[Rfam]
Nucleotides: 511
Base pairs, nucleotide, nucleotide: 006390007389008388009387011385013384015382016381017380020327022325023324024320028316029315036311037310038309039308040307041306042305046303049301050300051299052298057230058229060227061226064223065112066111068109075103077102078101080099082097083096084095086093117222118221122217126213127212129210130209131206134203135202136201140197143196144195150190155187156186157185158184159183160182161178165174235295236294237293240290241289243287244286245285250282251281252280254278256277257276258275260271262269329342330341331340332339351379353377355375356374357373363369391431392430393429394428395427396426397425399423400422401421403418405416407415437476438475440473443470444469446467447465448464449463451461452460478509480505481504482503484502485501486500488498
Number, partner (000 for none) and nucleotide at each position: 001000g002000u003000g004000g005000c006390g007389g008388u009387g010000u011385g012000c013384g014000c015382c016381c017380a018000c019000u020327g021000g022325g023324c024320g025000u026000c027000c028316u029315c030000g031000u032000c033000c034000a035000g036311c037310a038309g039308g040307g041306c042305g043000u044000g045000c046303u047000c048000u049301c050300c051299g052298a053000a054000c055000c056000g057230u058229u059000c060227a061226c062000c063000a064223u065112c066111g067000g068109c069000g070000a071000g072000u073000a074000c075103g076000u077102c078101a079000a080099g081000g082097g083096c084095g085000a086093c087000c088000u089000c090000g091000u092000c093086g094000c095084c096083g097082u098000a099080c100000c101078u102077g103075c104000c105000g106000a107000c108000g109068g110000a111066c112065g113000u114000c115000u116000g117222g118221c119000c120000g121000a122217u123000g124000c125000g126213g127212c128000c129210g130209u131206g132000c133000g134203c135202g136201a137000u138000c139000a140197g141000g142000u143196a144195g145000a146000g147000c148000c149000g150190g151000u152000c153000c154000g155187c156186c157185g158184g159183c160182g161178c162000a163000c164000c165174g166000c167000g168000c169000u170000c171000c172000a173000c174165c175000a176000g177000c178161g179000u180000c181000u182160c183159g184158c185157c186156g187155g188000g189000c190150c191000g192000g193000a194000a195144c196143u197140c198000g199000c200000g201136u202135u203134g204000g205000a206131c207000g208000c209130a210129c211000c212127g213126c214000u215000c216000g217122g218000c219000g220000a221118g222117c223064g224000c225000c226061g227060u228000c229058a230057g231000c232000a233000c234000c235295u236294c237293c238000a239000c240290g241289u242000c243287g244286u245285c246000g247000a248000a249000g250282c251281c252280g253000c254278g255000c256277a257276g258275c259000a260271g261000a262269g263000c264000c265000a266000g267000u268000u269262c270000a271260c272000c273000g274000a275258g276257c277256u278254c279000u280252c281251g282250g283000g284000g285245g286244a287243u288000c289241a290240c291000c292000c293237g294236g295235a296000c297000a298052u299051c300050g301049g302000c303046a304000c305042c306041g307040u308039c309038c310037u311036g312000a313000a314000u315029g316028a317000a318000c319000u320024c321000c322000a323000c324023g325022c326000a327020c328000c329342c330341g331340u332339c333000g334000c335000c336000g337000a338000c339332g340331g341330u342329g343000u344000a345000g346000u347000u348000c349000a350000g351379a352000c353377g354000a355375c356374g357373g358000u359000u360000c361000a362000c363369c364000c365000g366000g367000u368000a369363g370000u371000g372000c373357c374356c375355g376000c377353c378000c379351u380017u381016g382015g383000c384013c385011u386000c387009c388008a389007c390006c391431c392430a393429g394428g395427g396426g397425a398000g399423c400422a401421u402000c403418c404000g405416c406000a407415g408000c409000a410000g411000c412000c413000a414000g415407c416405g417000g418403g419000a420000g421401g422400u423399g424000a425397u426396c427395u428394c429393c430392u431391g432000c433000a434000u435000c436000u437476g438475c439000g440473g441000g442000g443470c444469g445000g446467a447465c448464u449463u450000g451461g452460u453000g454000g455000u456000g457000u458000g459000g460452g461451u462000g463449a464448g465447g466000u467446u468000g469444c470443g471000g472000g473440c474000a475438g476437c477000c478509g479000c480505u481504g482503u483000a484502c485501c486500c487000a488498g489000g490000c491000u492000g493000g494000a495000u496000u497000g498488c499000g500486g501485g502484g503482g504481c505480a506000g507000c508000u509478c510000c511000a